A member of the RNA family "TPP riboswitch aptamer (THI element)" from Mycobacterium intermedium, 110 nucleotides long.
Its family is annotated with thiamine pyrophosphate binding in the Gene Ontology.
Rfam describes the family as follows. Vitamin B(1) in its active form thiamin pyrophosphate (TPP) is an essential coenzyme that is synthesised by coupling of pyrimidine and thiazole moieties in bacteria.
RNA sequence: CUAACCACCCGCGGGAGCGCACGCCCGGUGCGCUGAGAGGACGGCUCGGGGCCGUCGACCGUACGAACCUGACCGGGUAAUGCCGGCGUAGGGAGUUGAAAUGACCGACG
Number, nucleotide and partner (000 for none) at each position: 001c000002u000003a000004a000005c000006c098007a097008c000009c095010c000011g062012c061013g060014g059015g000016a000017g033018c032019g031020c030021a029022c000023g000024c000025c000026c000027g000028g000029u021030g020031c019032g018033c017034u000035g000036a000037g000038a000039g000040g056041a055042c054043g053044g052045c051046u050047c000048g000049g000050g046051g045052c044053c043054g042055u041056c040057g000058a000059c014060c013061g012062u011063a000064c000065g000066a000067a000068c092069c091070u090071g089072a000073c086074c085075g084076g083077g000078u000079a000080a000081u000082g000083c076084c075085g074086g073087c000088g000089u071090a070091g069092g068093g000094a000095g009096u000097u007098g006099a000100a000101a000102u000103g000104a000105c000106c000107g000108a000109c000110g000